[Rfam]
RNA: mir-181 microRNA precursor family
Organism: Albula goreensis
RNA sequence: UGGCUGCGAUAAACAUUCAUUGCUGUCGGUGGGUUUCUCCUGCGAACAGCUCACUGAUCAAUGAAUGCACACUGCGGUCCA
Dot-bracket structure: ((((((((.....(((((((((..(((((((.(((............))).)))))))))))))))).....))))).)))